RNA: Potassium channel RNA editing signal
Organism: Acanthochromis polyacanthus
RNA sequence: GUCGGCUAUGGUGACAUGUGUCCGGGCACGGUUGGAGGGAAGCUGGUGGGCUCCAUGUGUGCCAUCGCCGGCGUCCUCACCAUCUCGUUGCCAGUGCCUGUUAUCGUGUCCAAC
Numbered sequence: 001g002u003c004g005g006c007u008a009u010g011g012u013g014a015c016a017u018g019u020g021u022c023c024g025g026g027c028a029c030g031g032u033u034g035g036a037g038g039g040a041a042g043c044u045g046g047u048g049g050g051c052u053c054c055a056u057g058u059g060u061g062c063c064a065u066c067g068c069c070g071g072c073g074u075c076c077u078c079a080c081c082a083u084c085u086c087g088u089u090g091c092c093a094g095u096g097c098c099u100g101u102u103a104u105c106g107u108g109u110c111c112a113a114c
Stems, first nucleotide, its partner, number of pairs: 001114002004111002007108005013102004018097004037077004049063003